[Rfam]
Overview
TPP riboswitch aptamer (THI element): an 89-nucleotide sequence from Cetobacterium somerae. The base pairs follow the family's consensus structure, which is taken from published work. The organism belongs to Cetobacterium somerae, within Bacteria. Rfam links the family to the GO term thiamine pyrophosphate binding.
RNA sequence: UUAAACUACUAGGGGUGCCCUUUGGCUGAGACUUACUCUUAGAACCUGAUCUAGUUAAUACUAGCGUAGGGAAGUAGUUAAUUAUCACU
Numbered sequence: 001u002u003a004a005a006c007u008a009c010u011a012g013g014g015g016u017g018c019c020c021u022u023u024g025g026c027u028g029a030g031a032c033u034u035a036c037u038c039u040u041a042g043a044a045c046c047u048g049a050u051c052u053a054g055u056u057a058a059u060a061c062u063a064g065c066g067u068a069g070g071g072a073a074g075u076a077g078u079u080a081a082u083u084a085u086c087a088c089u
Stems, first nucleotide, its partner, number of pairs: 006077005011039004017026003045070004051064004